The record is a 67-nucleotide RNA sequence from Pipistrellus kuhlii, which matches "mir-9256 microRNA precursor family" in Rfam. The base pairs follow the family's consensus structure, which was predicted with RNAalifold. Rfam links the family to the GO terms RISC complex and miRNA-mediated post-transcriptional gene silencing. Lineage of the source: Eukaryota > Opisthokonta > Bilateria > Dipnotetrapodomorpha > Pipistrellus.
[Rfam]
RNA sequence: AAAUACACUGAGUGGCCAGAUUAUUAUUAUCUUUGAAAGUAUAAUAAUCUGGCCACUCAGUGCAUAU
Number, nucleotide and partner (000 for none) at each position: 001a000002a000003a000004u064005a000006c062007a061008c060009u059010g058011a057012g056013u055014g054015g053016c052017c051018a000019g049020a048021u047022u046023a045024u044025u043026a042027u041028u000029a000030u000031c000032u000033u000034u000035g000036a000037a000038a000039g000040u000041a027042u026043a025044a024045u023046a022047a021048u020049c019050u000051g017052g016053c015054c014055a013056c012057u011058c010059a009060g008061u007062g006063c000064a004065u000066a000067u000